FMN riboswitch aptamer (RFN element): a 119-nucleotide sequence from Candidatus Vecturithrix granuli. Rfam describes the family as follows. The RFN element is a highly conserved domain that is found frequently in the 5'-untranslated regions of prokaryotic mRNAs that encode for flavin mononucleotide (FMN) biosynthesis and transport proteins. Rfam links the family to the GO term FMN binding. A reference for the family is Serganov et al. (2009), "Coenzyme recognition and gene regulation by a flavin mononucleotide riboswitch", Nature. A search with the family's covariance model found it, with a score of 111 bits.
RNA sequence: AAAAUCUUUAGGGGCAGGGUGUAAUUCCCGACCGGCGGUCAGAGUCCGCGAGCUGCAAUGCAGUUGAUUCGGUGAAAUUCCGGAACCGACAGUCAAAGUCUGGAGGGGAUAAAGAUUUU
Number, nucleotide and partner (000 for none) at each position: 001a000002a000003a117004a116005u115006c114007u113008u112009u111010a110011g000012g000013g000014g000015c000016a000017g029018g028019g027020u000021g000022u000023a000024a000025u000026u000027c019028c018029c017030g000031a099032c098033c088034g087035g049036c048037g047038g046039u000040c000041a000042g000043a000044g086045u085046c038047c037048g036049c035050g000051a000052g064053c063054u062055g000056c000057a000058a000059u000060g000061c000062a054063g053064u052065u000066g000067a000068u084069u083070c082071g081072g080073u000074g000075a000076a000077a000078u000079u000080c072081c071082g070083g069084a068085a045086c044087c034088g033089a000090c102091a101092g100093u000094c000095a000096a000097a000098g032099u031100c092101u091102g090103g000104a000105g000106g000107g000108g000109a000110u010111a009112a008113a007114g006115a005116u004117u003118u000119u000